RNA sequence: UGAGCUGGCUAGGCGGCCGCGUGGUGCGUGAAAGCGCGCCCCGAGGAACGUCCGGGCUCCACAGGGAACGGUGGUGGGUAACGCCCACCCGAGGUGACUCGCGGGAAAGCGCCACAGAAAACAGACCGCUUCGGGCAGUGUUCGGAGUAAGGGUGAAACGGCGGUGUAAGAGACCACCGCGUCUCAGGUGACUGAGGCGGCACGGCAAGCCCCACCGGGAGCAAGGUCGCACAGCGCACGUAGGCGUCCCGUUUAGUGCGUGGGUGGACUGCUAGAGCCAUGCGGCAACGUAUGGCGUAGAUGGAUGGCCGCCGCCGCGAAAGCGGCACAGAACCCGGCGUAUCGGCCAGCUCAUUCG
Numbered sequence: 001u002g003a004g005c006u007g008g009c010u011a012g013g014c015g016g017c018c019g020c021g022u023g024g025u026g027c028g029u030g031a032a033a034g035c036g037c038g039c040c041c042c043g044a045g046g047a048a049c050g051u052c053c054g055g056g057c058u059c060c061a062c063a064g065g066g067a068a069c070g071g072u073g074g075u076g077g078g079u080a081a082c083g084c085c086c087a088c089c090c091g092a093g094g095u096g097a098c099u100c101g102c103g104g105g106a107a108a109g110c111g112c113c114a115c116a117g118a119a120a121a122c123a124g125a126c127c128g129c130u131u132c133g134g135g136c137a138g139u140g141u142u143c144g145g146a147g148u149a150a151g152g153g154u155g156a157a158a159c160g161g162c163g164g165u166g167u168a169a170g171a172g173a174c175c176a177c178c179g180c181g182u183c184u185c186a187g188g189u190g191a192c193u194g195a196g197g198c199g200g201c202a203c204g205g206c207a208a209g210c211c212c213c214a215c216c217g218g219g220a221g222c223a224a225g226g227u228c229g230c231a232c233a234g235c236g237c238a239c240g241u242a243g244g245c246g247u248c249c250c251g252u253u254u255a256g257u258g259c260g261u262g263g264g265u266g267g268a269c270u271g272c273u274a275g276a277g278c279c280a281u282g283c284g285g286c287a288a289c290g291u292a293u294g295g296c297g298u299a300g301a302u303g304g305a306u307g308g309c310c311g312c313c314g315c316c317g318c319g320a321a322a323g324c325g326g327c328a329c330a331g332a333a334c335c336c337g338g339c340g341u342a343u344c345g346g347c348c349a350g351c352u353c354a355u356u357c358g
Base pairs, nucleotide, nucleotide: 001354002353003352004351005350006349007348008347009346010345011343012313013312014311015310016309017308018307020043021042023040024039025038026037027036028035048341049340050339052338053337054336055335056334057221058220059219060218064250065249066248067247069217070216071215072214073213074088075087076086077085078084089103090101091100092099093098104212105211109210110209111206112205113204126152127151128148129147130146131145132144133143134142135141136140160178161177163175164174165173179201180199181198182197183196184195185194186193187192225270226269227268228267234261235260236259237258238257239256241255242254243253244252245251277296278295279294280293281292282291283290284289
Rfam assigns this 358-nucleotide sequence from Ancrocorticia populi to the family "Bacterial RNase P class A". Rfam describes the family as follows. Ribonuclease P (RNase P) is a ubiquitous endoribonuclease, found in archaea, bacteria and eukarya as well as chloroplasts and mitochondria. A search with the family's covariance model found it, with a score of 303 bits. The family's RNA type in Rfam is ribozyme. The base pairs follow the family's consensus structure, which is taken from published work. The organism belongs to Ancrocorticia, within Bacteria.